mir-8799 microRNA precursor family: a 91-nucleotide RNA sequence from Canis lupus. The match comes from Rfam's covariance-model search (68 bits). Its family is annotated with miRNA-mediated post-transcriptional gene silencing and RISC complex in the Gene Ontology. Its Rfam clan is "mir-8791 microRNA precursor clan". The base pairs follow the family's consensus structure, which was predicted with RNAalifold.
[Rfam]
RNA sequence: GGGGGAGCGCCGGAUCUUGGGCUGUGUCCCCAGUGCCCUGUGCUCCCGGGCCUGUGCUGCUAGAAUCGUACUCCCCGCCGCACAGGUCCCU
Numbered sequence: 001g002g003g004g005g006a007g008c009g010c011c012g013g014a015u016c017u018u019g020g021g022c023u024g025u026g027u028c029c030c031c032a033g034u035g036c037c038c039u040g041u042g043c044u045c046c047c048g049g050g051c052c053u054g055u056g057c058u059g060c061u062a063g064a065a066u067c068g069u070a071c072u073c074c075c076c077g078c079c080g081c082a083c084a085g086g087u088c089c090c091u
Base pairs, nucleotide, nucleotide: 001091002090003089004088005087009083011080012079013078016077019074020073021072023070024069025068026067027064028063031059032058033057034056035055036054040052042051043050044049